[Rfam]
RNA: Group I catalytic intron
Organism: Magnaporthiopsis poae
RNA sequence: UUAAGGUUUUGAUCAAAAAAGAUAAAGUGAACCUUUAUCUAGUUAUAGUUCCACCUAUAGCUAAAUUUUCAAAUUGCGGGAAAGUCUUAAAGACAAAUCUACCAAAUUAACAUAGUAAUAUAGUUAAUGGCAUAGGUAAUGACUCAUGGUAUGGUAAAAACGAUUUGUAUAUAUAGAUUAUCUGCAGCCAAUCACCUCCAUAGGUGUGCAGUUCAUCGACUAAACGGAAAUUGGUUUAUUUUUAAUAAGCUUAAGAUAUAGUCAGUCUCAAUGUGAAAAUAUUGG
Numbered sequence: 001u002u003a004a005g006g007u008u009u010u011g012a013u014c015a016a017a018a019a020a021g022a023u024a025a026a027g028u029g030a031a032c033c034u035u036u037a038u039c040u041a042g043u044u045a046u047a048g049u050u051c052c053a054c055c056u057a058u059a060g061c062u063a064a065a066u067u068u069u070c071a072a073a074u075u076g077c078g079g080g081a082a083a084g085u086c087u088u089a090a091a092g093a094c095a096a097a098u099c100u101a102c103c104a105a106a107u108u109a110a111c112a113u114a115g116u117a118a119u120a121u122a123g124u125u126a127a128u129g130g131c132a133u134a135g136g137u138a139a140u141g142a143c144u145c146a147u148g149g150u151a152u153g154g155u156a157a158a159a160a161c162g163a164u165u166u167g168u169a170u171a172u173a174u175a176g177a178u179u180a181u182c183u184g185c186a187g188c189c190a191a192u193c194a195c196c197u198c199c200a201u202a203g204g205u206g207u208g209c210a211g212u213u214c215a216u217c218g219a220c221u222a223a224a225c226g227g228a229a230a231u232u233g234g235u236u237u238a239u240u241u242u243u244a245a246u247a248a249g250c251u252u253a254a255g256a257u258a259u260a261g262u263c264a265g266u267c268u269c270a271a272u273g274u275g276a277a278a279a280u281a282u283u284g285g
Stems, first nucleotide, its partner, number of pairs: 005033001008031004013026001037044001064232005070226001075186006085177003187212002193206005216264001218263005234250007270283005